Nucleotides: 107
Stems, first nucleotide, its partner, number of pairs: 002106007013041001015040003021031003025083004042075004047071002050067004079099001084096004
Number, partner (000 for none) and nucleotide at each position: 001000a002106u003105c004104u005103u006102a007101u008100c009000c010000a011000g012000a013041g014000u015040g016039g017038u018000a019000g020000a021031g022030g023029g024000a025083c026082u027081g028080g029023c030022c031021c032000g033000u034000u035000g036000a037000a038017a039016c040015c041013c042075g043074a044073c045072a046000a047071c048070c049000a050067g051066c052065a053064u054000u055000g056000u057000u058000u059000u060000u061000a062000a063000u064053g065052u066051g067050u068000a069000u070048g071047g072045u073044g074043u075042u076000a077000a078000u079099u080028c081027c082026a083025g084096c085095a086094g087093a088000u089000u090000g091000u092000u093087u094086c095085u096084g097000a098000a099079a100008g101007a102006u103005a104004a105003g106002g107000a